[Rfam]
RNA: Fluoride riboswitch aptamer (crcB RNA motif)
Organism: Mucilaginibacter paludis
RNA sequence: UUAAACAAAGGUGAUGGUGUUCCACCUAAUUGAACCGCUGCAAAGCUGAUGACGCCUGCCAAAUA
Numbered sequence: 001u002u003a004a005a006c007a008a009a010g011g012u013g014a015u016g017g018u019g020u021u022c023c024a025c026c027u028a029a030u031u032g033a034a035c036c037g038c039u040g041c042a043a044a045g046c047u048g049a050u051g052a053c054g055c056c057u058g059c060c061a062a063a064u065a
Stems, first nucleotide, its partner, number of pairs: 010026004016056006037046003